RNA sequence: GCUCACGAGUGGACGGCAGUUCGGGUACCUGGUCCGUCGUCCCGGCAACCGCGCCACCACCGCACGGUGCCCCAGGGGAAGAGCCGGCGCGCGAUGAGCGCGCAAGGGGUGGAU
Numbered sequence: 001g002c003u004c005a006c007g008a009g010u011g012g013a014c015g016g017c018a019g020u021u022c023g024g025g026u027a028c029c030u031g032g033u034c035c036g037u038c039g040u041c042c043c044g045g046c047a048a049c050c051g052c053g054c055c056a057c058c059a060c061c062g063c064a065c066g067g068u069g070c071c072c073c074a075g076g077g078g079a080a081g082a083g084c085c086g087g088c089g090c091g092c093g094a095u096g097a098g099c100g101c102g103c104a105a106g107g108g109g110u111g112g113a114u
Stems, first nucleotide, its partner, number of pairs: 001084004009043001011042006024035002044071003049067003053063002087103006
RNA: SAM (S-adenosyl methionine) riboswitch aptamer
Organism: Mycobacterium sinensis